[Rfam]
RNA sequence: UCACUUUAUUUCCUAGCCUCAAAAGGUUGAUGGCUGGUGGCUAUUGAGGCACCAGCCU
Numbered sequence: 001u002c003a004c005u006u007u008a009u010u011u012c013c014u015a016g017c018c019u020c021a022a023a024a025g026g027u028u029g030a031u032g033g034c035u036g037g038u039g040g041c042u043a044u045u046g047a048g049g050c051a052c053c054a055g056c057c058u
Base pairs, nucleotide, nucleotide: 014029015028016027017026018025032057033056034055035054036053037052038051039050041048
RNA: Pseudomonas sRNA P26